[Rfam]
RNA sequence: AACCAUUUGUCCCGCGUCCCACGGCGUUUUAAAAAAGUCCCUUUCCAAAAGAAUCUUUCCAAAAAUAGGGACUUUUUUAAAACGCCGUGGGACGCGGGACAAAUGGUUAA
Numbered sequence: 001a002a003c004c005a006u007u008u009g010u011c012c013c014g015c016g017u018c019c020c021a022c023g024g025c026g027u028u029u030u031a032a033a034a035a036a037g038u039c040c041c042u043u044u045c046c047a048a049a050a051g052a053a054u055c056u057u058u059c060c061a062a063a064a065a066u067a068g069g070g071a072c073u074u075u076u077u078u079a080a081a082a083c084g085c086c087g088u089g090g091g092a093c094g095c096g097g098g099a100c101a102a103a104u105g106g107u108u109a110a
Stems, first nucleotide, its partner, number of pairs: 001108042
The family of this 110-nucleotide RNA from Cnephaeus nilssonii is "mir-9261 microRNA precursor family". The match comes from Rfam's covariance-model search (97 bits). Its family is annotated with miRNA-mediated post-transcriptional gene silencing and RISC complex in the Gene Ontology. NCBI's taxonomy places the organism under Eukaryota, Bilateria, Tetrapoda, Vespertilionidae, Cnephaeus.